[Rfam]
RNA: Glycine riboswitch aptamer
Organism: Planosporangium flavigriseum
RNA sequence: CACGUUUACGCGCGAGAGAUCGUCCACAGUUCCGGACGGCGCCGAAGGGGCAAAUCCUCCCCGGAACCUCUCAGGCAAAAGGACCGCGUAGGCAGG
Number, nucleotide and partner (000 for none) at each position: 001c000002a000003c000004g000005u000006u091007u090008a089009c088010g087011c086012g085013c000014g000015a000016g000017a000018g000019a000020u039021c038022g037023u036024c035025c034026a000027c000028a000029g000030u000031u000032c000033c000034g025035g024036a023037c022038g021039g020040c000041g076042c075043c074044g072045a071046a000047g000048g070049g069050g068051c000052a000053a000054a000055u063056c000057c000058u000059c000060c000061c000062c000063g055064g000065a000066a000067c000068c050069u049070c048071u045072c044073a000074g043075g042076c041077a000078a000079a000080a000081g000082g000083a000084c000085c012086g011087c010088g009089u008090a007091g006092g000093c000094a000095g000096g000